[Rfam]
RNA sequence: ACGGGAGAGGUUCGAGAACUCCCUCUAUAAAAAACUAAUCGCUG
Number, nucleotide and partner (000 for none) at each position: 001a000002c000003g000004g000005g000006a026007g025008a024009g023010g022011u000012u000013c000014g000015a000016g036017a000018a000019c000020u000021c000022c010023c009024u008025c007026u006027a000028u000029a000030a000031a000032a000033a000034a000035c000036u016037a000038a000039u000040c000041g000042c000043u000044g000